[Rfam]
RNA sequence: ACGCAAACGGUGUUCAUGCGUGGCAUGAAGCCGCGAAAGCAGGGAUGCGCAAUACCUGCUUUCCGCCAUUUGCGC
Number, nucleotide and partner (000 for none) at each position: 001a000002c074003g073004c072005a071006a070007a069008c000009g067010g066011u065012g064013u029014u028015c027016a026017u025018g024019c023020g000021u000022g000023g019024c018025a017026u016027g015028a014029a013030g000031c000032c000033g000034c000035g063036a062037a061038a060039g000040c058041a057042g056043g055044g000045a000046u000047g000048c000049g000050c000051a000052a000053u000054a000055c043056c042057u041058g040059c000060u038061u037062u036063c035064c012065g011066c010067c009068a000069u007070u006071u005072g004073c003074g002075c000